[Rfam]
About this RNA
The family of this 88-nucleotide RNA from Sporomusa ovata is "c-di-GMP-I riboswitch aptamer". NCBI's taxonomy places the organism under Bacteria, Bacillati, Bacillota, Sporomusaceae, Sporomusa. Pairs were carried over by alignment from the consensus structure, which is taken from published work. Rfam links the family to the GO term cyclic-di-GMP binding.

RNA sequence: UCCCAUAGUUGGCAAACUUAUCGAAAGGUUAGGACGCAAAGCCAUGGGUCUACUGUACCACGGGUACUAUGAUUGCCAGGUUGCCGUU
Numbered sequence: 001u002c003c004c005a006u007a008g009u010u011g012g013c014a015a016a017c018u019u020a021u022c023g024a025a026a027g028g029u030u031a032g033g034a035c036g037c038a039a040a041g042c043c044a045u046g047g048g049u050c051u052a053c054u055g056u057a058c059c060a061c062g063g064g065u066a067c068u069a070u071g072a073u074u075g076c077c078a079g080g081u082u083g084c085c086g087u088u
Stems, first nucleotide, its partner, number of pairs: 012037002017032002020029003040082004045078003048073003055067004